Source information:
A member of the RNA family "Small nucleolar RNA Z278" from Cannabis sativa, 115 nucleotides long. snoZ278 is a C/D box small nucleolar RNA. Its methylation guide targets have not been reported. By type it is a C/D-box small nucleolar RNA. Taxonomically the source falls in Cannabis (Eukaryota, Streptophytina, Mesangiospermae, Pentapetalae). A reference for the family is Chen et al. (2003), "The high diversity of snoRNAs in plants: identification and comparative study of 120 snoRNA genes from Oryza sativa", Nucleic Acids Res.
RNA sequence: GCCUGGGAAGAUUCAAUCCAAUUGUUUGAGGUGUUGUGGAGUCGAGACCCUGUUUACAGGGAGAACCCCUUGAUGAUACUACAUUUCAUAUGACUUUAAUGGAUUUAGCUGAGGC
Number, nucleotide and partner (000 for none) at each position: 001g115002c114003c113004u000005g000006g000007g000008a000009a000010g000011a000012u000013u000014c000015a000016a000017u000018c000019c000020a000021a000022u000023u000024g000025u000026u000027u000028g000029a000030g000031g000032u000033g000034u000035u000036g000037u000038g000039g000040a000041g000042u000043c000044g000045a000046g000047a000048c061049c060050c059051u058052g057053u000054u000055u000056a000057c052058a051059g050060g049061g048062a000063g000064a000065a000066c000067c000068c000069c000070u000071u000072g000073a000074u000075g000076a000077u000078a000079c000080u000081a000082c000083a000084u000085u000086u000087c000088a000089u000090a000091u000092g000093a000094c000095u000096u000097u000098a000099a000100u000101g000102g000103a000104u000105u000106u000107a000108g000109c000110u000111g000112a000113g003114g002115c001